[Rfam]
RNA sequence: CCAGUCGGCCGGGCAGCCGCGGCGUUCCAAUGCCGAAAGGCGGGCGUCGAGGAAAGUCCGGGCUCCAGGGAGCAACGGUGCCGGAUAACGUCCGGCGGGGGCGACCCCAGGGAAAGUGCCACAGAAAGCAAACCGCCUUCGCAUUUGCUGCGCAAAUUGCUGAGGUAAGGGUGAAAGGGUGGGGUAAGAGCCCACCGCGUGGCCGGUAACGGUCAUGGCAGGGUAAACCCCACCGGGAGCAAGACCGAAUAGGGACGGCGCGGGCCUUGGCCCGGUGGCUCCGCACCAGUCGUCCGGGUGGGUUGCAUGAGGCGGUCAGCGAUGGCCGUCCCAGAUGAAUGGCUGCCGGGCCGCUUUGCGGCUCACAGAACCCGGCUUACAGGCCGGCUGGCAAU
Numbered sequence: 001c002c003a004g005u006c007g008g009c010c011g012g013g014c015a016g017c018c019g020c021g022g023c024g025u026u027c028c029a030a031u032g033c034c035g036a037a038a039g040g041c042g043g044g045c046g047u048c049g050a051g052g053a054a055a056g057u058c059c060g061g062g063c064u065c066c067a068g069g070g071a072g073c074a075a076c077g078g079u080g081c082c083g084g085a086u087a088a089c090g091u092c093c094g095g096c097g098g099g100g101g102c103g104a105c106c107c108c109a110g111g112g113a114a115a116g117u118g119c120c121a122c123a124g125a126a127a128g129c130a131a132a133c134c135g136c137c138u139u140c141g142c143a144u145u146u147g148c149u150g151c152g153c154a155a156a157u158u159g160c161u162g163a164g165g166u167a168a169g170g171g172u173g174a175a176a177g178g179g180u181g182g183g184g185u186a187a188g189a190g191c192c193c194a195c196c197g198c199g200u201g202g203c204c205g206g207u208a209a210c211g212g213u214c215a216u217g218g219c220a221g222g223g224u225a226a227a228c229c230c231c232a233c234c235g236g237g238a239g240c241a242a243g244a245c246c247g248a249a250u251a252g253g254g255a256c257g258g259c260g261c262g263g264g265c266c267u268u269g270g271c272c273c274g275g276u277g278g279c280u281c282c283g284c285a286c287c288a289g290u291c292g293u294c295c296g297g298g299u300g301g302g303u304u305g306c307a308u309g310a311g312g313c314g315g316u317c318a319g320c321g322a323u324g325g326c327c328g329u330c331c332c333a334g335a336u337g338a339a340u341g342g343c344u345g346c347c348g349g350g351c352c353g354c355u356u357u358g359c360g361g362c363u364c365a366c367a368g369a370a371c372c373c374g375g376c377u378u379a380c381a382g383g384c385c386g387g388c389u390g391g392c393a394a395u
Base pairs, nucleotide, nucleotide: 001391002390003389004388005387006386007385008384009383010382011380012347013346014345015344016343017342018341020049021048022047023046024045025044026043027042054378055377056376058375059374060373061372062371063239064238065237066236072281076235077234078233079232080231081095082094083093084092085091096110097108098107099106100105111230112229116228117227118224119223120222133170134169135166136165137164138163139162141160142159143158178196179195180194181193182192183191197219198217199216200215201214202213203212204211205210243304244303245302246301253295254294255293256292257291258290274287275286276285277284311330312329313328314327315326316325317324318323
A member of the RNA family "Bacterial RNase P class A", 395 nucleotides long.
Ribonuclease P (RNase P) is a ubiquitous endoribonuclease, found in archaea, bacteria and eukarya as well as chloroplasts and mitochondria.
Its Rfam clan is "RNaseP clan".
It is annotated as a ribozyme.